[Rfam]
RNA sequence: UUAUAAGCAAAAAAUCACUUUUUAGAUUCAUUAAAAAACGAAUGUACCUAGUCCAUAUCAUAGACCAAAUAUAUUCGUUUUUCAAUGAAUCUAAAAAGUGAUUUUUUGCUUAUAA
Numbered sequence: 001u002u003a004u005a006a007g008c009a010a011a012a013a014a015u016c017a018c019u020u021u022u023u024a025g026a027u028u029c030a031u032u033a034a035a036a037a038a039c040g041a042a043u044g045u046a047c048c049u050a051g052u053c054c055a056u057a058u059c060a061u062a063g064a065c066c067a068a069a070u071a072u073a074u075u076c077g078u079u080u081u082u083c084a085a086u087g088a089a090u091c092u093a094a095a096a097a098g099u100g101a102u103u104u105u106u107u108g109c110u111u112a113u114a115a
Base pairs, nucleotide, nucleotide: 002114003113004112005111006110007109009107010106011105012104013103015101016100017099018098019097020096021095022094023093024092025091027089028088029087030086031085032084034082035081036080037079038078039077040076041075042074043073044072049067051065052064

Shown here is a 115-nucleotide RNA from Trifolium subterraneum, a member of the family "MIR2593 microRNA precursor family".
It scores 96 bits against the family's covariance model.
Rfam links the family to the GO terms RISC complex and miRNA-mediated post-transcriptional gene silencing.